[Rfam]
Nucleotides: 095
Stems, first nucleotide, its partner, number of pairs: 010088005016082002020078002023075001025073006032066003
Number, partner (000 for none) and nucleotide at each position: 001000a002000a003000u004000a005000u006000u007000g008000u009000a010088u011087g012086a013085c014084a015000a016082c017081g018000a019000g020078g021077g022000a023075g024000a025073g026072c027071a028070c029069g030068c031000a032066u033065g034064u035000a036000g037000a038000c039000a040000g041000u042000c043000a044000u045000g046000c047000c048000c049000u050000u051000u052000g053000c054000a055000u056000g057000a058000a059000u060000g061000c062000c063000g064034a065033c066032g067000a068030g069029c070028g071027u072026g073025c074000u075023c076000u077021c078020u079000c080000u081017c082016g083000u084014u085013g086012u087011c088010a089000a090000a091000g092000a093000a094000u095000a
Background
MIR535 microRNA precursor family: a 95-nucleotide RNA from Rhamnella rubrinervis. Taxonomically the source falls in Rhamnella (Eukaryota, Streptophytina, Gunneridae, Rhamnaceae). The match comes from Rfam's covariance-model search (82 bits). Rfam 15.1 lists 544 matches to the family in 108 species.